[Rfam]
RNA: Potassium channel RNA editing signal
Organism: Echinococcus granulosus
RNA sequence: GUUGGAUAUGGCGAUAUGAGUCCAACAACCACAUGGGGCAAAGUAAUUGGUUCCGGUUGUGCUCUUUGUGGAGUGCUUGUGCUCGCCAUGCCGAUUCCCAUAAUUGUGAACAAC
Numbered sequence: 001g002u003u004g005g006a007u008a009u010g011g012c013g014a015u016a017u018g019a020g021u022c023c024a025a026c027a028a029c030c031a032c033a034u035g036g037g038g039c040a041a042a043g044u045a046a047u048u049g050g051u052u053c054c055g056g057u058u059g060u061g062c063u064c065u066u067u068g069u070g071g072a073g074u075g076c077u078u079g080u081g082c083u084c085g086c087c088a089u090g091c092c093g094a095u096u097c098c099c100a101u102a103a104u105u106g107u108g109a110a111c112a113a114c
Stems, first nucleotide, its partner, number of pairs: 001114002004111001007108005014101002018097004037077004049063003